[Rfam]
Betaproteobacteria-1 RNA: a 117-nucleotide RNA sequence. The family's RNA type in Rfam is small RNA.
RNA sequence: CGCUCUGCUUGUGGGACAUAACCGCAGGGGUAGAGGGAAAGAUGUACUGUGGGGUAGAUGCUGAGAUACAUCAAGGGGUGGCGAAGAUAGUGCCCUUGCAUCGAACGACUGUCGGGU
Numbered sequence: 001c002g003c004u005c006u007g008c009u010u011g012u013g014g015g016a017c018a019u020a021a022c023c024g025c026a027g028g029g030g031u032a033g034a035g036g037g038a039a040a041g042a043u044g045u046a047c048u049g050u051g052g053g054g055u056a057g058a059u060g061c062u063g064a065g066a067u068a069c070a071u072c073a074a075g076g077g078g079u080g081g082c083g084a085a086g087a088u089a090g091u092g093c094c095c096u097u098g099c100a101u102c103g104a105a106c107g108a109c110u111g112u113c114g115g116g117u
Stems, first nucleotide, its partner, number of pairs: 001037001003035008024050004041072006058101004074097006086113006